RNA sequence: GCUUGUCGAUAACUCCGAGCCCAAUAUUCUACGUUAUGAAAGAUGAAUAUGAAUAUUGCGCCGUGAUGCUCACCAGCAAUGUUGGAAUUAUGACGCAUCACCAGGGUCAUUCUAGAAAUGGACUGGCCUCCCGUAUUUGGAAAGGUGUUUUGUGAACAUUGAA
Numbered sequence: 001g002c003u004u005g006u007c008g009a010u011a012a013c014u015c016c017g018a019g020c021c022c023a024a025u026a027u028u029c030u031a032c033g034u035u036a037u038g039a040a041a042g043a044u045g046a047a048u049a050u051g052a053a054u055a056u057u058g059c060g061c062c063g064u065g066a067u068g069c070u071c072a073c074c075a076g077c078a079a080u081g082u083u084g085g086a087a088u089u090a091u092g093a094c095g096c097a098u099c100a101c102c103a104g105g106g107u108c109a110u111u112c113u114a115g116a117a118a119u120g121g122a123c124u125g126g127c128c129u130c131c132c133g134u135a136u137u138u139g140g141a142a143a144g145g146u147g148u149u150u151u152g153u154g155a156a157c158a159u160u161g162a163a
Stems, first nucleotide, its partner, number of pairs: 004156001006154001011149003015145002019061002022058008033048003063101007104129006111122004130140002
This 163-nucleotide sequence from Vibrio sp. qd031 belongs to the Rfam family "Molybdenum/Tungsten riboswitch aptamer (Moco RNA motif)". Gene Ontology terms of the family: tungstate binding, molybdenum ion binding and regulation of gene expression. It scores 89 bits against the family's covariance model.